[Rfam]
RNA sequence: GAAACGGAGCGGUACCUCUUUAACCCUUGAAGUCACCGCCCGUUCAAAGAGUUUUUCUCAACUCGAAAUAACUAAAGCCAACGUGAACUUUUGCGGACCCUAUGGUCCGCU
Numbered sequence: 001g002a003a004a005c006g007g008a009g010c011g012g013u014a015c016c017u018c019u020u021u022a023a024c025c026c027u028u029g030a031a032g033u034c035a036c037c038g039c040c041c042g043u044u045c046a047a048a049g050a051g052u053u054u055u056u057c058u059c060a061a062c063u064c065g066a067a068a069u070a071a072c073u074a075a076a077g078c079c080a081a082c083g084u085g086a087a088c089u090u091u092u093g094c095g096g097a098c099c100c101u102a103u104g105g106u107c108c109g110c111u
Base pairs, nucleotide, nucleotide: 003044004043005042006041007040009039010038011037012036014033015032017030018029049064050063051062052061093110094109095108096107097106098105099104
A member of the RNA family "OxyS RNA" from Citrobacter koseri, 111 nucleotides long.
The base pairs follow the family's consensus structure, which is taken from published work.
It scores 108 bits against the family's covariance model.
About the family: OxyS is a small untranslated RNA which is induced in response to oxidative stress in Escherichia coli. This novel RNA acts as a global regulator to activate or repress the expression of as many as 40 genes, including the fhlA-encoded transcriptional activator and the rpoS-encoded sigma(s) subunit of RNA polymerase. OxyS is bound by the Hfq protein, that increases the OxyS RNA interaction with its target messages.
A reference for the family is Zhang et al. (2002), "The Sm-like Hfq protein increases OxyS RNA interaction with target mRNAs", Mol Cell.
Lineage of the source: Bacteria > Gammaproteobacteria > Enterobacterales > Enterobacteriaceae > Citrobacter koseri.
By type it is a small RNA.